[Rfam]
RNA sequence: AAGUUAAUAUCCAUGAGAGUUCAUAUAAUAGCGGAGAUAGGGUCCGCAAGUUUCUACCAAACAACCGUAAAUUGUUUGACUAUGAGCGAAAAGUACACCGAC
Number, nucleotide and partner (000 for none) at each position: 001a000002a000003g000004u000005u000006a000007a000008u000009a000010u000011c000012c000013a000014u000015g000016a000017g000018a000019g087020u086021u085022c084023a083024u082025a081026u000027a000028a000029u049030a000031g047032c046033g045034g044035a043036g000037a000038u000039a000040g000041g000042g000043u035044c034045c033046g032047c031048a000049a029050g000051u000052u000053u000054c000055u000056a000057c000058c078059a077060a076061a075062c074063a073064a072065c000066c000067g000068u000069a000070a000071a000072u064073u063074g062075u061076u060077u059078g058079a000080c000081u025082a024083u023084g022085a021086g020087c019088g000089a000090a000091a000092a000093g000094u000095a000096c000097a000098c000099c000100g000101a000102c000
Purine riboswitch aptamer: a 102-nucleotide sequence from Desulfosporosinus youngiae. The match comes from Rfam's covariance-model search (83 bits). Lineage of the source: Bacteria > Bacillati > Bacillota > Clostridia > Desulfosporosinus youngiae. Gene Ontology term of the family: purine nucleobase biosynthetic process. The literature on the family includes a 2004 paper in Nat Struct Mol Biol by Mandal and Breaker, "Adenine riboswitches and gene activation by disruption of a transcription terminator".